[Rfam]
RNA sequence: CUGGAAUGAUGCAUUUUAGCCAAAUCAUACGUUGAUGUGCUCCUUAUGGCAUUGUUGUCUAAGCUUGUGCUAGUUAUCAUACAGUCACAUCGGUGUUCUUUCUAUGCACAUGUUCAAGCUUUAGAUGGCAGUCUGUUUGUAGAAGCGCAUCUCUGAUGAUAACACAGAGAUUGGUUGCACACUGACCAGA
Numbered sequence: 001c002u003g004g005a006a007u008g009a010u011g012c013a014u015u016u017u018a019g020c021c022a023a024a025u026c027a028u029a030c031g032u033u034g035a036u037g038u039g040c041u042c043c044u045u046a047u048g049g050c051a052u053u054g055u056u057g058u059c060u061a062a063g064c065u066u067g068u069g070c071u072a073g074u075u076a077u078c079a080u081a082c083a084g085u086c087a088c089a090u091c092g093g094u095g096u097u098c099u100u101u102c103u104a105u106g107c108a109c110a111u112g113u114u115c116a117a118g119c120u121u122u123a124g125a126u127g128g129c130a131g132u133c134u135g136u137u138u139g140u141a142g143a144a145g146c147g148c149a150u151c152u153c154u155g156a157u158g159a160u161a162a163c164a165c166a167g168a169g170a171u172u173g174g175u176u177g178c179a180c181a182c183u184g185a186c187c188a189g190a
Stems, first nucleotide, its partner, number of pairs: 001189004